[Rfam]
RNA sequence: CCAAAGGCUCUUUUCAGAGCCACCUACGCUUUCAAUCGGAAGAGCU
Numbered sequence: 001c002c003a004a005a006g007g008c009u010c011u012u013u014u015c016a017g018a019g020c021c022a023c024c025u026a027c028g029c030u031u032u033c034a035a036u037c038g039g040a041a042g043a044g045c046u
Stems, first nucleotide, its partner, number of pairs: 006021006